Bacterial RNase P class A: a 406-nucleotide RNA sequence from Phytohabitans houttuyneae. From the family's description: Ribonuclease P (RNase P) is a ubiquitous endoribonuclease, found in archaea, bacteria and eukarya as well as chloroplasts and mitochondria. The match comes from Rfam's covariance-model search (280 bits). The source organism's lineage runs through Bacteria, Actinomycetota, Actinomycetes, Micromonosporaceae and Phytohabitans. The family's RNA type in Rfam is ribozyme. Clan: RNaseP clan. The family's consensus secondary structure is taken from published work. Its family is annotated with tRNA processing, dimeric ribonuclease P complex and ribonuclease P activity in the Gene Ontology.

RNA sequence: CGAGUCGGCCGGGCGGUCGCGUCAGCUUCGUGCUCCGCACGUAGCUGCCGAGGAACGUCCGGACUCCACAGGGCAGGGUGGUUGUUAACGGCAACCCGGGGUGACCCGCGGGACAGUGCCACAGAAAACAGACCGCCGCGCUACGGCGCGGUAAGGGUGAAACGGUGGGGUAAGAGCCCACCAGCGCUCCGGGUGACCGGAGCGGCUCGGUAAACCCCACCCGGAGCAAGGCCAAGAAAGAGCCGCCACCGCGAGGCGGCGGCUCGCGCAGGCGUUCGAGGGCGGCCCGCCCGAUGCCUGCGGGUAGGCCGCUGGAGCCUGCCGGCAACGGUAGGCCGAGAUGGAUGGCCGCCACCGGCGGCACAUGCCGCCGGGACAGAAUCCGGCGUACAGGCCGACUCGUCCG
Numbered sequence: 001c002g003a004g005u006c007g008g009c010c011g012g013g014c015g016g017u018c019g020c021g022u023c024a025g026c027u028u029c030g031u032g033c034u035c036c037g038c039a040c041g042u043a044g045c046u047g048c049c050g051a052g053g054a055a056c057g058u059c060c061g062g063a064c065u066c067c068a069c070a071g072g073g074c075a076g077g078g079u080g081g082u083u084g085u086u087a088a089c090g091g092c093a094a095c096c097c098g099g100g101g102u103g104a105c106c107c108g109c110g111g112g113a114c115a116g117u118g119c120c121a122c123a124g125a126a127a128a129c130a131g132a133c134c135g136c137c138g139c140g141c142u143a144c145g146g147c148g149c150g151g152u153a154a155g156g157g158u159g160a161a162a163c164g165g166u167g168g169g170g171u172a173a174g175a176g177c178c179c180a181c182c183a184g185c186g187c188u189c190c191g192g193g194u195g196a197c198c199g200g201a202g203c204g205g206c207u208c209g210g211u212a213a214a215c216c217c218c219a220c221c222c223g224g225a226g227c228a229a230g231g232c233c234a235a236g237a238a239a240g241a242g243c244c245g246c247c248a249c250c251g252c253g254a255g256g257c258g259g260c261g262g263c264u265c266g267c268g269c270a271g272g273c274g275u276u277c278g279a280g281g282g283c284g285g286c287c288c289g290c291c292c293g294a295u296g297c298c299u300g301c302g303g304g305u306a307g308g309c310c311g312c313u314g315g316a317g318c319c320u321g322c323c324g325g326c327a328a329c330g331g332u333a334g335g336c337c338g339a340g341a342u343g344g345a346u347g348g349c350c351g352c353c354a355c356c357g358g359c360g361g362c363a364c365a366u367g368c369c370g371c372c373g374g375g376a377c378a379g380a381a382u383c384c385g386g387c388g389u390a391c392a393g394g395c396c397g398a399c400u401c402g403u404c405c406g
Base pairs, nucleotide, nucleotide: 001402002401003400004399005398006397007396008395009394010393011391012353013352014351015350016349017348018347020050021049023047024046025045026044027043055389056388057387059386060385061384062383063382064226065225066224067223071288072287073286074285076222077221078220079219080218081095082094083093084092085091096110097108098107099106100105111217112216116215117214118211119210120209133156134155135152136151137150138149139148140147141146164182165181166180167179168178169177184206185204186203187202188201189200190199191198192197230310231309232308233307268301269300270299271298272297273296280292281291282290283289317336318335319334320333321332322331323330324329